[Rfam]
RNA sequence: UUCUACUUGUCAAUGUUGAUCGUCACGUGUUGCGUUUUUAUUGGACGUUAAUUUUGUGCACUUAAUUAAUGUCAACCUCCAAUAAAAUUGCAACACGUGACAGUCAAUAUCU
Numbered sequence: 001u002u003c004u005a006c007u008u009g010u011c012a013a014u015g016u017u018g019a020u021c022g023u024c025a026c027g028u029g030u031u032g033c034g035u036u037u038u039u040a041u042u043g044g045a046c047g048u049u050a051a052u053u054u055u056g057u058g059c060a061c062u063u064a065a066u067u068a069a070u071g072u073c074a075a076c077c078u079c080c081a082a083u084a085a086a087a088u089u090g091c092a093a094c095a096c097g098u099g100a101c102a103g104u105c106a107a108u109a110u111c112u
Stems, first nucleotide, its partner, number of pairs: 022101004027096002031092003036087003040083003
RNA: MIR1520 microRNA precursor family
Organism: Glycine soja